[Rfam]
RNA sequence: GUCUUAUCAAGAGAGGUGGAGGGACUGGCCCUAUGAAACCCAACAACCAGCAUUUUUUAAUUAGAUGUAUGGUGUUAAUUCCUGCAAAGUUAAUUUUGAGAGAUAAGAG
Numbered sequence: 001g002u003c004u005u006a007u008c009a010a011g012a013g014a015g016g017u018g019g020a021g022g023g024a025c026u027g028g029c030c031c032u033a034u035g036a037a038a039c040c041c042a043a044c045a046a047c048c049a050g051c052a053u054u055u056u057u058u059a060a061u062u063a064g065a066u067g068u069a070u071g072g073u074g075u076u077a078a079u080u081c082c083u084g085c086a087a088a089g090u091u092a093a094u095u096u097u098g099a100g101a102g103a104u105a106a107g108a109g
Base pairs, nucleotide, nucleotide: 002108003107004106005105006104007103008102013041015040016039017038021031022030023029025084027082028081042076043075044074045073047072048071050068051067052066053065054064055063080101085098086097087096088095
About this RNA:
SAM riboswitch aptamer (S box leader): a 109-nucleotide RNA from Clostridium acetobutylicum. The SAM riboswitch is found upstream of a number of genes which code for proteins involved in methionine or cysteine biosynthesis in Gram-positive bacteria. Rfam's curators put it in the seed alignment. For this family Rfam cites "The S box regulon: a new global transcription termination control system for methionine and cysteine biosynthesis genes in gram-positive bacteria" (Grundy and Henkin, Mol Microbiol, 1998).